[Rfam]
RNA sequence: GGGGAUAUAGCUCAGUGGUAGAGCAUUUGAGUGCAGUUCAAAAUGUCCUCAGUUCAAAUCUGAGUGUCCCCU
Numbered sequence: 001g002g003g004g005a006u007a008u009a010g011c012u013c014a015g016u017g018g019u020a021g022a023g024c025a026u027u028u029g030a031g032u033g034c035a036g037u038u039c040a041a042a043a044u045g046u047c048c049u050c051a052g053u054u055c056a057a058a059u060c061u062g063a064g065u066g067u068c069c070c071c072u
Base pairs, nucleotide, nucleotide: 001071002070003069004068005067006066007065010024011023012022013021026042027041028040029039030038048064049063050062051061052060

Shown here is a 72-nucleotide sequence from Eptatretus burgeri, a member of the family "tRNA". By type it is a transfer RNA.